[Rfam]
RNA sequence: CGCCAUAAGGGAUAGUAUUACCCUUAUGGCGACAAUGUAGCAUGCAGCA
Number, nucleotide and partner (000 for none) at each position: 001c031002g030003c029004c028005a027006u026007a025008a024009g023010g022011g021012a000013u000014a000015g000016u000017a000018u000019u000020a000021c011022c010023c009024u008025u007026a006027u005028g004029g003030c002031g001032a000033c000034a000035a000036u000037g000038u000039a000040g000041c000042a000043u000044g000045c000046a000047g000048c000049a000

The family of this 49-nucleotide sequence is "ssNA-helicase RNA". It is one of the family's seed sequences. By type it is a small RNA. The base pairs follow the family's consensus structure, which is taken from published work.